This 518-nucleotide part of an RNA from Sulfolobales archaeon HS-7 belongs to the Rfam family "Archaeal small subunit ribosomal RNA". The organism belongs to Sulfolobales, within Archaea. A reference for the family is Yusupov et al. (2001), "Crystal structure of the ribosome at 5.5 A resolution", Science. Rfam 15.1 lists 709 matches to the family in 491 species.

[Rfam]
RNA sequence: AUUCCGGUUGAUCCUGCCGGACCCGAUCGCUAUCAGGGUAGGGCUAAGCCAUGGGAGUUAUACGUAUCCGGUAAGGGUACGUGGCGCACGGCUGAGUAACACGUGGCUAACCUACCCUCUGGACUGGAACAACCCCGGGAAACUGGGGAUAAUUCCAGAUAGGUAUGGGCAUCUGGAAGGGGUCCAUACCCAAAUGCUCGCUUACUGUUACCGUGAGCGAGUGCCGGAGGAUGGGGCUGCGGCCCAUCAGGUAGUUGGGGGGGUAAAGGCCCUCCAAGCCUAUAACGGGUAGGGGCCGUGAAAGCGGGAGCCCCCAGAUGGGCACUGAGACAAGGGCCCAGGCCCUACGGGGUGCACCAGGCGCGGAACGUUCACAAUGCGCGAAAGCGUGAUGGCGCUACCCUGAGUGCCCUUUGGGCUUUUCUCCGCUCUAUAAAGGCGGAGGAAUAAGCGGGGGGCAAGACUGGUGUCAGCCGCCGCGGUAAUACCAGCCCCGCGAGUGAUCGGGACGCUUAUUG
Numbered sequence: 001a002u003u004c005c006g007g008u009u010g011a012u013c014c015u016g017c018c019g020g021a022c023c024c025g026a027u028c029g030c031u032a033u034c035a036g037g038g039u040a041g042g043g044c045u046a047a048g049c050c051a052u053g054g055g056a057g058u059u060a061u062a063c064g065u066a067u068c069c070g071g072u073a074a075g076g077g078u079a080c081g082u083g084g085c086g087c088a089c090g091g092c093u094g095a096g097u098a099a100c101a102c103g104u105g106g107c108u109a110a111c112c113u114a115c116c117c118u119c120u121g122g123a124c125u126g127g128a129a130c131a132a133c134c135c136c137g138g139g140a141a142a143c144u145g146g147g148g149a150u151a152a153u154u155c156c157a158g159a160u161a162g163g164u165a166u167g168g169g170c171a172u173c174u175g176g177a178a179g180g181g182g183u184c185c186a187u188a189c190c191c192a193a194a195u196g197c198u199c200g201c202u203u204a205c206u207g208u209u210a211c212c213g214u215g216a217g218c219g220a221g222u223g224c225c226g227g228a229g230g231a232u233g234g235g236g237c238u239g240c241g242g243c244c245c246a247u248c249a250g251g252u253a254g255u256u257g258g259g260g261g262g263g264u265a266a267a268g269g270c271c272c273u274c275c276a277a278g279c280c281u282a283u284a285a286c287g288g289g290u291a292g293g294g295g296c297c298g299u300g301a302a303a304g305c306g307g308g309a310g311c312c313c314c315c316a317g318a319u320g321g322g323c324a325c326u327g328a329g330a331c332a333a334g335g336g337c338c339c340a341g342g343c344c345c346u347a348c349g350g351g352g353u354g355c356a357c358c359a360g361g362c363g364c365g366g367a368a369c370g371u372u373c374a375c376a377a378u379g380c381g382c383g384a385a386a387g388c389g390u391g392a393u394g395g396c397g398c399u400a401c402c403c404u405g406a407g408u409g410c411c412c413u414u415u416g417g418g419c420u421u422u423u424c425u426c427c428g429c430u431c432u433a434u435a436a437a438g439g440c441g442g443a444g445g446a447a448u449a450a451g452c453g454g455g456g457g458g459c460a461a462g463a464c465u466g467g468u469g470u471c472a473g474c475c476g477c478c479g480c481g482g483u484a485a486u487a488c489c490a491g492c493c494c495c496g497c498g499a500g501u502g503a504u505c506g507g508g509a510c511g512c513u514u515a516u517u518g
Base pairs, nucleotide, nucleotide: 004020005019006018007017008016022508023507024506025505026504027503028502029501030500031499033406034405035404036403037402038401039400040399041398042364048362049361050360052359053358054357057085058084059083062082063081064080065079066078067077068076092317093316094315102241103240104239105238106237107236108235111234112233116230117229118228119227120226121225122224124158125157126156127155133148134147135146136145137144138143163189164188165187166186167185168184169183170182172181173180196222197221198220199219200218201217202216203215204214205213243289244288245287250280251279252278255277256276257275258274259273260272261271262270292314293313294312295311296307297306298305299304319340320339321338322337323336342353343352344351345350370396372395373394374393378391379390380389381388382387409419410418411417412416424444425443426442427441428440429439430438451497452496453495454494455493456492464491465490466489467488473480474479